Shown here is a 90-nucleotide sequence from Enterococcus ratti, a member of the family "RNA anti-toxin A". The family's consensus secondary structure was predicted with RNAalifold. For this family Rfam cites "Abundance of type I toxin-antitoxin systems in bacteria: searches for new candidates and discovery of novel families" (Fozo et al., Nucleic Acids Res, 2010). It is annotated as an antitoxin RNA. Lineage of the source: Bacteria > Bacillota > Lactobacillales > Enterococcaceae > Enterococcus. It scores 52 bits against the family's covariance model.

RNA sequence: UACUUAAAAUAAGAAAAAGGGGCUAUGCUCGAACAUAGCCCCUUGUAGAACCGUUAAAAAGACGGUGACUUAAAAAUAAAUGAUUUACUC
Numbered sequence: 001u002a003c004u005u006a007a008a009a010u011a012a013g014a015a016a017a018a019g020g021g022g023c024u025a026u027g028c029u030c031g032a033a034c035a036u037a038g039c040c041c042c043u044u045g046u047a048g049a050a051c052c053g054u055u056a057a058a059a060a061g062a063c064g065g066u067g068a069c070u071u072a073a074a075a076a077u078a079a080a081u082g083a084u085u086u087a088c089u090c
Base pairs, nucleotide, nucleotide: 024037025036026035027034050066051065052064053063054062055061